[Rfam]
RNA sequence: GGGGAGCAUGUAUGACAUAAAUGUUCACCCGAUACAAUCUUCCAAUAGUUAAAGCUGUAUUUUCCUGCUUGCAAUCCUACAAGAAAGUUUCGCAAGUCUCAAGAUACAGGACAUGUAU
Numbered sequence: 001g002g003g004g005a006g007c008a009u010g011u012a013u014g015a016c017a018u019a020a021a022u023g024u025u026c027a028c029c030c031g032a033u034a035c036a037a038u039c040u041u042c043c044a045a046u047a048g049u050u051a052a053a054g055c056u057g058u059a060u061u062u063u064c065c066u067g068c069u070u071g072c073a074a075u076c077c078u079a080c081a082a083g084a085a086a087g088u089u090u091c092g093c094a095a096g097u098c099u100c101a102a103g104a105u106a107c108a109g110g111a112c113a114u115g116u117a118u
Base pairs, nucleotide, nucleotide: 001030002029003028005025006024007023008022009021011019056111058109067097068096069095070094071093072092074090077087078086

A member of the RNA family "Small nucleolar RNA snoR104" from Zingiber officinale, 118 nucleotides long. The match comes from Rfam's covariance-model search (65 bits). The family's consensus secondary structure was predicted with WAR. Lineage of the source: Eukaryota > Streptophyta > Liliopsida > Zingiberaceae > Zingiber. Its family is annotated with RNA processing and nucleolus in the Gene Ontology.